RNA sequence: GGGCCACCAGGGCAAGCGCAUCGAAGGGUGCGCACGCAAAGCCACCGGUCUAAGGCAUGAGCUAAGGCACUAGCUACGACAGCGGGGUUGCACGG
Numbered sequence: 001g002g003g004c005c006a007c008c009a010g011g012g013c014a015a016g017c018g019c020a021u022c023g024a025a026g027g028g029u030g031c032g033c034a035c036g037c038a039a040a041g042c043c044a045c046c047g048g049u050c051u052a053a054g055g056c057a058u059g060a061g062c063u064a065a066g067g068c069a070c071u072a073g074c075u076a077c078g079a080c081a082g083c084g085g086g087g088u089u090g091c092a093c094g095g
Stems, first nucleotide, its partner, number of pairs: 012037002017032006040089004045085003048080003055074002
About this RNA
The family of this 95-nucleotide RNA sequence from Curvibacter sp. PAE-UM is "c-di-GMP-I riboswitch aptamer".